RNA sequence: ACAGUGUCAAUCUAGCAGUUAGGGGUUUACAAAAUGUGGCACUUAUCUGUCAUAAAUUCAACCCCGGGAAGGUCUGAGAUUAGAUCGACAUAAUGUCUCUAGACGGGACGAUGUUGUAAUAGACAUGCAUGAGAACCAGAAACAGUUUGAUUUAUGUCAUUUUGCCGGGGAUACUCUUGCGAGUGGAGGCGGCAUUUAUCAAGUUGGAAACUCGUGUGAUCAGCAUUUUAAGUCUAAUCUGCAAGCCGGUACCCAUUGUGGACCGGAACUCAAUUCAGACUAAUCUGACACUGU
Numbered sequence: 001a002c003a004g005u006g007u008c009a010a011u012c013u014a015g016c017a018g019u020u021a022g023g024g025g026u027u028u029a030c031a032a033a034a035u036g037u038g039g040c041a042c043u044u045a046u047c048u049g050u051c052a053u054a055a056a057u058u059c060a061a062c063c064c065c066g067g068g069a070a071g072g073u074c075u076g077a078g079a080u081u082a083g084a085u086c087g088a089c090a091u092a093a094u095g096u097c098u099c100u101a102g103a104c105g106g107g108a109c110g111a112u113g114u115u116g117u118a119a120u121a122g123a124c125a126u127g128c129a130u131g132a133g134a135a136c137c138a139g140a141a142a143c144a145g146u147u148u149g150a151u152u153u154a155u156g157u158c159a160u161u162u163u164g165c166c167g168g169g170g171a172u173a174c175u176c177u178u179g180c181g182a183g184u185g186g187a188g189g190c191g192g193c194a195u196u197u198a199u200c201a202a203g204u205u206g207g208a209a210a211c212u213c214g215u216g217u218g219a220u221c222a223g224c225a226u227u228u229u230a231a232g233u234c235u236a237a238u239c240u241g242c243a244a245g246c247c248g249g250u251a252c253c254c255a256u257u258g259u260g261g262a263c264c265g266g267a268a269c270u271c272a273a274u275u276c277a278g279a280c281u282a283a284u285c286u287g288a289c290a291c292u293g294u
Base pairs, nucleotide, nucleotide: 001294002293003292004291007288008287009286012245013244015242016241017240018239022065023064024063025062026061036053037052038051039050040049041048074278075277076276077275078274083221084220085219086218095109096108097107098106099105111126112125113124114123115122127217128216129215130214131213132212133211146203147202148201149200150199246266247265248264249263250262252260
Shown here is a 294-nucleotide RNA sequence from Microctonus hyperodae, a member of the family "Nuclear RNase P". The family's RNA type in Rfam is ribozyme. The source organism's lineage runs through Eukaryota, Allotriocarida, Braconidae, Euphorinae and Microctonus. Ribonuclease P (RNase P) is a ubiquitous endoribonuclease, found in archaea, bacteria and eukarya as well as chloroplasts and mitochondria.